The family of this 127-nucleotide sequence from Dorcoceras hygrometricum is "Small nucleolar RNA snoR74".
A search with the family's covariance model found it, with a score of 47 bits.
A reference for the family is Marker et al. (2002), "Experimental RNomics: identification of 140 candidates for small non-messenger RNAs in the plant Arabidopsis thaliana", Curr Biol.

[Rfam]
RNA sequence: AUAAAGGCCAGAAGCUUGUUGCCCUAGUGAACAAGCUUCUCGUGACCAUCAGGAAUAAAUAUAUCAGCAUCAUUCUAUGAGCCCUCUUGCUUUUGUGACAAAAGGUUCAGCAAAUGACGGUAUAGGG
Numbered sequence: 001a002u003a004a005a006g007g008c009c010a011g012a013a014g015c016u017u018g019u020u021g022c023c024c025u026a027g028u029g030a031a032c033a034a035g036c037u038u039c040u041c042g043u044g045a046c047c048a049u050c051a052g053g054a055a056u057a058a059a060u061a062u063a064u065c066a067g068c069a070u071c072a073u074u075c076u077a078u079g080a081g082c083c084c085u086c087u088u089g090c091u092u093u094u095g096u097g098a099c100a101a102a103a104g105g106u107u108c109a110g111c112a113a114a115u116g117a118c119g120g121u122a123u124a125g126g127g
Stems, first nucleotide, its partner, number of pairs: 005049001007047001012038002015035004066121001068119001070117005078109006
Gene Ontology terms of the family: nucleolus and RNA processing.